Annotation
The family of this 74-nucleotide RNA from Streptococcus ferus is "L17 ribosomal protein downstream element". A search with the family's covariance model found it, with a score of 68 bits.
RNA sequence: UGAGUGUUACGAUGAUGGGACUAUUAAAGAUAGUUCUUAGUCUAGCUCUGGUCUACCGCUAGUUAAACUAGCGG
Dot-bracket structure: .((((.....(((...((((((.........))))))..)))..)))).......((((((((...))))))))